Rfam assigns this 411-nucleotide sequence from Thalassovita mediterranea to the family "Bacterial RNase P class A". The family's consensus secondary structure is taken from published work. The match comes from Rfam's covariance-model search (303 bits). Ribonuclease P (RNase P) is a ubiquitous endoribonuclease, found in archaea, bacteria and eukarya as well as chloroplasts and mitochondria. Rfam classes the family as a ribozyme.

RNA sequence: GCGGAGGGCCGGAUGGCCGCUGGUGGCAGGGUAACCGGUCACGAGAGGAAAGUCCGGACUCCACAAGGCAAGGGUGCCGGGUAACGCCCGGCGGGGGCAACCCCAGGGAAAGCGCCACAGAAAACAGACCGCCUCGUGGCCCGUUGGUUCGCCGAUGGGAUCCCCGUCGGGGUAAGGGUGAAACGGUGGGGUAAGAGCCCACCGCGGGUCUGGCAACAGAACCGGCACGGCAAGCCCCACCCGGAGCAAUGCCGAAUAGGGGCUUCACGCGGCGUGUCCGCAGGGUCUGCCUUGACCCAGAAGCCCGGGUUGGCAGCUAGAGGUGCGUCGGUAACAGCGCGCCUAGAUGAAUGGUCAUCUCGGAUGGAUCUCCAUCUAUGACAGAAUCCGGCUUAUAGGCCCUCCGCGCGU
Numbered sequence: 001g002c003g004g005a006g007g008g009c010c011g012g013a014u015g016g017c018c019g020c021u022g023g024u025g026g027c028a029g030g031g032u033a034a035c036c037g038g039u040c041a042c043g044a045g046a047g048g049a050a051a052g053u054c055c056g057g058a059c060u061c062c063a064c065a066a067g068g069c070a071a072g073g074g075u076g077c078c079g080g081g082u083a084a085c086g087c088c089c090g091g092c093g094g095g096g097g098c099a100a101c102c103c104c105a106g107g108g109a110a111a112g113c114g115c116c117a118c119a120g121a122a123a124a125c126a127g128a129c130c131g132c133c134u135c136g137u138g139g140c141c142c143g144u145u146g147g148u149u150c151g152c153c154g155a156u157g158g159g160a161u162c163c164c165c166g167u168c169g170g171g172g173u174a175a176g177g178g179u180g181a182a183a184c185g186g187u188g189g190g191g192u193a194a195g196a197g198c199c200c201a202c203c204g205c206g207g208g209u210c211u212g213g214c215a216a217c218a219g220a221a222c223c224g225g226c227a228c229g230g231c232a233a234g235c236c237c238c239a240c241c242c243g244g245a246g247c248a249a250u251g252c253c254g255a256a257u258a259g260g261g262g263c264u265u266c267a268c269g270c271g272g273c274g275u276g277u278c279c280g281c282a283g284g285g286u287c288u289g290c291c292u293u294g295a296c297c298c299a300g301a302a303g304c305c306c307g308g309g310u311u312g313g314c315a316g317c318u319a320g321a322g323g324u325g326c327g328u329c330g331g332u333a334a335c336a337g338c339g340c341g342c343c344u345a346g347a348u349g350a351a352u353g354g355u356c357a358u359c360u361c362g363g364a365u366g367g368a369u370c371u372c373c374a375u376c377u378a379u380g381a382c383a384g385a386a387u388c389c390g391g392c393u394u395a396u397a398g399g400c401c402c403u404c405c406g407c408g409c410g411u
Base pairs, nucleotide, nucleotide: 001407002406003405004404005403006402007401008400009399010398011396012359013358014357015356016355017354018353020045021044023042024041025040026039027038050394051393052392054391055390056389057388058387059246060245061244062243067292068291072242073241074240075239076238077091078090079089080088081087092106093104094103095102096101107237108236112235113234114231115230116229129177130176131173132172133171134170135169136168139165185203186202187201188200189199190198204226205224206223207222209220210219211218212217250315251314252313253312260306261305262304263303264302265301283298284297285296286295287294323342324341325340326339327338328337330335